Source information
Rfam assigns this 103-nucleotide sequence from Ceratopteris richardii to the family "Small nucleolar RNA Z157/R69/R10". Rfam 15.1 lists 836 matches to the family in 232 species. The family's consensus secondary structure was predicted with PFOLD. Its Rfam clan is "SNORD52 clan". NCBI's taxonomy places the organism under Eukaryota, Streptophyta, Polypodiopsida, Pteridaceae, Ceratopteris. It scores 65 bits against the family's covariance model.
RNA sequence: UGGGAUGCGAUGACGAGAAACUUGUUUUCGGACUAGAGUUUCUGAGCAGCAGCUCUCGAGCUUGCGCCCUGAAGAAACUACCCUUGGCUGUCUGAGCAUCCCC
Numbered sequence: 001u002g003g004g005a006u007g008c009g010a011u012g013a014c015g016a017g018a019a020a021c022u023u024g025u026u027u028u029c030g031g032a033c034u035a036g037a038g039u040u041u042c043u044g045a046g047c048a049g050c051a052g053c054u055c056u057c058g059a060g061c062u063u064g065c066g067c068c069c070u071g072a073a074g075a076a077a078c079u080a081c082c083c084u085u086g087g088c089u090g091u092c093u094g095a096g097c098a099u100c101c102c103c
Base pairs, nucleotide, nucleotide: 002102003101004100005099006098007097008096039074040073041072042071046067047066